[Rfam]
RNA sequence: GAGGUAAAUCCGUCUGACAGGAGCGGGGGACCCAAUUCCGCCGGACCCGUUCCGGCUAGGGGUGAAGUCACGGCAGAACCGCGCGUCCGUGGGCGCGCGGCCGGCCGUGGCCGGGCACCACUCCGGCCCGAACCCGACAGCUCACCUCGCAGGCGUCGGAGAGGAGACCC
Numbered sequence: 001g002a003g004g005u006a007a008a009u010c011c012g013u014c015u016g017a018c019a020g021g022a023g024c025g026g027g028g029g030a031c032c033c034a035a036u037u038c039c040g041c042c043g044g045a046c047c048c049g050u051u052c053c054g055g056c057u058a059g060g061g062g063u064g065a066a067g068u069c070a071c072g073g074c075a076g077a078a079c080c081g082c083g084c085g086u087c088c089g090u091g092g093g094c095g096c097g098c099g100g101c102c103g104g105c106c107g108u109g110g111c112c113g114g115g116c117a118c119c120a121c122u123c124c125g126g127c128c129c130g131a132a133c134c135c136g137a138c139a140g141c142u143c144a145c146c147u148c149g150c151a152g153g154c155g156u157c158g159g160a161g162a163g164g165a166g167a168c169c170c
Stems, first nucleotide, its partner, number of pairs: 003154001005152001009022003023150006033059001060135003068110007113129004